[Rfam]
RNA sequence: GCCACAUGAUGUGAUUCAGAUAGCAUUAGCACUCUGUGCAAAGAUGACCUUUUAUCUAUCACCCAAGACUGAUGGCU
Numbered sequence: 001g002c003c004a005c006a007u008g009a010u011g012u013g014a015u016u017c018a019g020a021u022a023g024c025a026u027u028a029g030c031a032c033u034c035u036g037u038g039c040a041a042a043g044a045u046g047a048c049c050u051u052u053u054a055u056c057u058a059u060c061a062c063c064c065a066a067g068a069c070u071g072a073u074g075g076c077u
Base pairs, nucleotide, nucleotide: 001076002075003074004073029039030038031037032036

A member of the RNA family "Small nucleolar RNA SNORD83" from Bagarius yarrelli, 77 nucleotides long. The match comes from Rfam's covariance-model search (66 bits). The family's RNA type in Rfam is C/D-box small nucleolar RNA.